[Rfam]
RNA: ncRNA Repressor of NFAT (nuclear factor of activated T cells)
RNA sequence: UGCAGCCAGCUCCACCUGGAACCCUGAAACUUUCCUUUGUAUGUUACAUUAAUCCACAUAAGAAAAUCUCUUUUAAUGAGGAGUGAUAUAGUUACCAACUCUCUAGAGCCACAAUUAGAGCAAACUAAUUGAACUUGUGUUUUGACACACUUUCCAAAUUCACGGUUACUGCCUGACAUAUUCACAACAAUGUUGCCGCACAGCCAUGGCGACGGCAAAAUCAUUAGACUAAUAACGCUUAUUUGCAUUCUUUUCAUGCCAGCAGCGUGCCAUCAAACACUCUCUCAGCCCCUGCUCGCUCGCUCGCUCUGAAAGUUUCCUCUGAAAGAUAUUAACAGUAAUUAUUAGCACUUUGCUGGAAUCUCUGGUACUAAAGA
Numbered sequence: 001u002g003c004a005g006c007c008a009g010c011u012c013c014a015c016c017u018g019g020a021a022c023c024c025u026g027a028a029a030c031u032u033u034c035c036u037u038u039g040u041a042u043g044u045u046a047c048a049u050u051a052a053u054c055c056a057c058a059u060a061a062g063a064a065a066a067u068c069u070c071u072u073u074u075a076a077u078g079a080g081g082a083g084u085g086a087u088a089u090a091g092u093u094a095c096c097a098a099c100u101c102u103c104u105a106g107a108g109c110c111a112c113a114a115u116u117a118g119a120g121c122a123a124a125c126u127a128a129u130u131g132a133a134c135u136u137g138u139g140u141u142u143u144g145a146c147a148c149a150c151u152u153u154c155c156a157a158a159u160u161c162a163c164g165g166u167u168a169c170u171g172c173c174u175g176a177c178a179u180a181u182u183c184a185c186a187a188c189a190a191u192g193u194u195g196c197c198g199c200a201c202a203g204c205c206a207u208g209g210c211g212a213c214g215g216c217a218a219a220a221u222c223a224u225u226a227g228a229c230u231a232a233u234a235a236c237g238c239u240u241a242u243u244u245g246c247a248u249u250c251u252u253u254u255c256a257u258g259c260c261a262g263c264a265g266c267g268u269g270c271c272a273u274c275a276a277a278c279a280c281u282c283u284c285u286c287a288g289c290c291c292c293u294g295c296u297c298g299c300u301c302g303c304u305c306g307c308u309c310u311g312a313a314a315g316u317u318u319c320c321u322c323u324g325a326a327a328g329a330u331a332u333u334a335a336c337a338g339u340a341a342u343u344a345u346u347a348g349c350a351c352u353u354u355g356c357u358g359g360a361a362u363c364u365c366u367g368g369u370a371c372u373a374a375a376g377a
Base pairs, nucleotide, nucleotide: 048369049368050367051366053360054359055358056357060353061352062351068083069082070081071080072079073078088345089344090343091342092341093340094339095338099108100107101106118297119296120295121294122293131153132152133151136149137148138147139146140145165271169265194211195210196209197208198207214260215259216258217257229245231243232242233241234240